[Rfam]
RNA sequence: CGCAAUAGUGAGGGGAUUUUUUUCGGUGUAGCUAGGUCGCCUAUUUAUCAUCGUGUUUGCGUAGCCAAUGCGUAAACACAGUACCACUAA
Dot-bracket structure: .......(((.................((.((...)).)).........((.((((..(((.........)))..)))).))..)))...
Shown here is a 90-nucleotide sequence from Staphylococcus aureus, a member of the family "Fst antitoxin sRNA". Its family is annotated with mRNA binding in the Gene Ontology. Lineage of the source: Bacteria > Bacillota > Caryophanales > Staphylococcaceae > Staphylococcus aureus. Rfam's curators write: It is located on the opposite strand of SprA1 sRNA. The base pairs follow the family's consensus structure, which was predicted with RNAalifold. Rfam's curators put it in the seed alignment.